Source information:
Rfam assigns this 120-nucleotide RNA sequence from Aquimarina muelleri to the family "Group II catalytic intron D1-D4-2".
RNA sequence: GGUGGAACCGACCCACUGGUGUUGUUUUAUAGGAGAGAACAUCAAACCACUAUAAGGUGCUUUGGUAAAGAGCCAAGGUAUUGAGCGUUAUAGAAAAGAUAACCCAUGAGAUUAUCAGGU
Numbered sequence: 001g002g003u004g005g006a007a008c009c010g011a012c013c014c015a016c017u018g019g020u021g022u023u024g025u026u027u028u029a030u031a032g033g034a035g036a037g038a039a040c041a042u043c044a045a046a047c048c049a050c051u052a053u054a055a056g057g058u059g060c061u062u063u064g065g066u067a068a069a070g071a072g073c074c075a076a077g078g079u080a081u082u083g084a085g086c087g088u089u090a091u092a093g094a095a096a097a098g099a100u101a102a103c104c105c106a107u108g109a110g111a112u113u114a115u116c117a118g119g120u
Base pairs, nucleotide, nucleotide: 001017002016003015004014005013018043019042020041021040022039023038025036026035027034028033048119050093051092052091053090054089055088056082057081059079060078061077063075064074065073066072098116099115100114101113102112
The match comes from Rfam's covariance-model search (99 bits).
Lineage of the source: Bacteria > Bacteroidota > Flavobacteriia > Flavobacteriaceae > Aquimarina.
Rfam links the family to the GO term Group II intron splicing.
The family has 144 seed sequences and 1,231 matches in Rfam 15.1.
Group II introns are found in rRNA, tRNA and mRNA of organelles in fungi, plants and protists, and also in mRNA in bacteria.